[Rfam]
RNA: terC RNA
RNA sequence: AAUGCGGGCCGGGCCCCUCUGGCGACACGCGCAAGCGGUCGUGAUGUCCGGACCGCAUCG
Numbered sequence: 001a002a003u004g005c006g007g008g009c010c011g012g013g014c015c016c017c018u019c020u021g022g023c024g025a026c027a028c029g030c031g032c033a034a035g036c037g038g039u040c041g042u043g044a045u046g047u048c049c050g051g052a053c054c055g056c057a058u059c060g
Base pairs, nucleotide, nucleotide: 006054007053009051010050011049012047022042023041024040025039026038028037029036030035